A member of the RNA family "mir-2944 microRNA precursor family" from Brassicogethes aeneus, 86 nucleotides long.

RNA sequence: UGGCGGUUAUUGUGAAGGAACUAUUGGUGUGAUUUGUUUUUUACUUAUUCAUAUCACAGCCAUUAGUUACUUCAUUGUGGUCGCCA
Numbered sequence: 001u002g003g004c005g006g007u008u009a010u011u012g013u014g015a016a017g018g019a020a021c022u023a024u025u026g027g028u029g030u031g032a033u034u035u036g037u038u039u040u041u042u043a044c045u046u047a048u049u050c051a052u053a054u055c056a057c058a059g060c061c062a063u064u065a066g067u068u069a070c071u072u073c074a075u076u077g078u079g080g081u082c083g084c085c086a
Stems, first nucleotide, its partner, number of pairs: 003084008016072003019068004025062001026060001028058006035051002
Dot-bracket structure: ..((((((((.....(((((((..((.((((((.((.............)).)))))).).)..)))).)))....))))))))..
Record summary
The source organism's lineage runs through Eukaryota, Panarthropoda, Neoptera, Cucujiformia and Brassicogethes. Pairs were carried over by alignment from the consensus structure, which was predicted with RNAalifold. Rfam links the family to the GO terms miRNA-mediated post-transcriptional gene silencing and RISC complex.